[Rfam]
RNA sequence: CAUCUCUGUUAGGGGUGUUCUUUUUAUAAGAGCUGAGAUUAGACCCUUGAACCUGAUAUGUUGUAAUUGACAUCGUAGGGAAACGGAACAUAAAAAGA
Numbered sequence: 001c002a003u004c005u006c007u008g009u010u011a012g013g014g015g016u017g018u019u020c021u022u023u024u025u026a027u028a029a030g031a032g033c034u035g036a037g038a039u040u041a042g043a044c045c046c047u048u049g050a051a052c053c054u055g056a057u058a059u060g061u062u063g064u065a066a067u068u069g070a071c072a073u074c075g076u077a078g079g080g081a082a083a084c085g086g087a088a089c090a091u092a093a094a095a096a097g098a
Stems, first nucleotide, its partner, number of pairs: 006086005011047004016041001017033005052079004058073004